This 78-nucleotide sequence from Trichogramma brassicae belongs to the Rfam family "mir-133 microRNA precursor family". The family's consensus secondary structure was predicted with PFOLD. The match comes from Rfam's covariance-model search (56 bits). On this family, see Lagos-Quintana et al., Curr Biol 2002: "Identification of tissue-specific microRNAs from mouse". mir-133 was first experimentally characterised in mouse and homologues have since been discovered in several other species. The mature sequence is excised from the 3' arm of the hairpin.
[Rfam]
RNA sequence: UAAGCUUAGCUGGUUGAACACGGGUCAAAUAUAAAGAAAUUUUGAAAGCAUUUGGUCCCCUUCAACCAGCUGUAGUUG
Number, nucleotide and partner (000 for none) at each position: 001u000002a000003a076004g000005c000006u000007u000008a071009g070010c069011u068012g067013g066014u065015u064016g063017a062018a061019c000020a000021c000022g057023g056024g000025u055026c054027a053028a052029a051030u050031a000032u000033a000034a000035a000036g000037a000038a000039a000040u000041u000042u000043u000044g000045a000046a000047a000048g000049c000050a030051u029052u028053u027054g026055g025056u023057c022058c000059c000060c000061u018062u017063c016064a015065a014066c013067c012068a011069g010070c009071u008072g000073u000074a000075g000076u003077u000078g000